THF (Tetrahydrofolate) riboswitch aptamer: a 102-nucleotide RNA from Pisciglobus halotolerans.
RNA sequence: AUCAGAGUAGGAAGCAAAGCGUUAAGUGCUGAAUGGAUGGGAUGUUGCCUUCAGACGAAAAACGGUUUGACCGUUUGCGGUUUUGCUUCUGCAUCCGCUGCA
Dot-bracket structure: ..(((....(((((((((((((...((.(((((.((...[[[[[...)))))))))...((((((.....))))))))).)))))))))).]]]]].)))..

About the family: Tetrahydrofolate (THF) riboswitch was first reported for Ames et al. as an RNA motif in 5' untranslated (5'-UTR)regions of folate transport and biosynthesis genes in Firmicutes genomes. The organism belongs to Pisciglobus, within Bacteria. A search with the family's covariance model found it, with a score of 81 bits. On this family, see Ames et al., Chem Biol 2010: "A eubacterial riboswitch class that senses the coenzyme tetrahydrofolate".